[Rfam]
RNA: M-box riboswitch aptamer (ykoK leader)
Organism: Holtiella tumoricola
RNA sequence: AAAUAACUUCGGUAGGUGAGGCUACCGUAGGGAUAUGGAUUGUUACCGCAAAAUAGUGGAGACACUAUGAGUUGGUCAGCAGGGGAUGUCGAAACCAAGGCAUAACCUAACACAAUUUCACCGCCCUACGAUGCUAAAGCUUGAACGAUGAAUUAGAUU
Number, nucleotide and partner (000 for none) at each position: 001a000002a000003a000004u000005a000006a154007c000008u152009u151010c150011g146012g000013u098014a000015g141016g140017u139018g000019a000020g135021g134022c133023u000024a000025c000026c130027g129028u128029a127030g126031g125032g124033a000034u000035a000036u000037g000038g000039a116040u115041u114042g113043u112044u000045a000046c074047c000048g072049c071050a000051a000052a000053a000054u000055a066056g065057u064058g063059g000060a000061g000062a000063c058064a057065c056066u055067a000068u000069g000070a000071g049072u048073u000074g046075g000076u000077c000078a000079g000080c000081a000082g107083g106084g000085g000086a000087u000088g101089u100090c099091g000092a000093a000094a000095c000096c000097a000098a013099g090100g089101c088102a000103u000104a000105a000106c083107c082108u000109a000110a000111c000112a043113c042114a041115a040116u039117u000118u000119c000120a000121c000122c000123g000124c032125c031126c030127u029128a028129c027130g026131a000132u000133g022134c021135u020136a000137a000138a000139g017140c016141u015142u000143g000144a000145a000146c011147g000148a000149u000150g010151a009152a008153u000154u006155a000156g000157a000158u000159u000